RNA sequence: GUUCACAAUAGCAUACUGCCCCAGACAGUGGGUAUUACUAUAAUGGUACAAUACCGCCCACCGAGGCAGACGAUGAAUAUAACGGGAUAUUUCCGUUUCUCGGCUGCUGUGUCUGGAACAGUAGCCGAUUUUUAUAUGCAAUG
Numbered sequence: 001g002u003u004c005a006c007a008a009u010a011g012c013a014u015a016c017u018g019c020c021c022c023a024g025a026c027a028g029u030g031g032g033u034a035u036u037a038c039u040a041u042a043a044u045g046g047u048a049c050a051a052u053a054c055c056g057c058c059c060a061c062c063g064a065g066g067c068a069g070a071c072g073a074u075g076a077a078u079a080u081a082a083c084g085g086g087a088u089a090u091u092u093c094c095g096u097u098u099c100u101c102g103g104c105u106g107c108u109g110u111g112u113c114u115g116g117a118a119c120a121g122u123a124g125c126c127g128a129u130u131u132u133u134a135u136a137u138g139c140a141a142u143g
Base pairs, nucleotide, nucleotide: 028061029060030059031058032057033056100128101127102126103125104124105123106122107121108120109119
Shown here is a 143-nucleotide RNA sequence from Chloroflexi bacterium AL-W, a member of the family "Ribosomal protein L10 leader".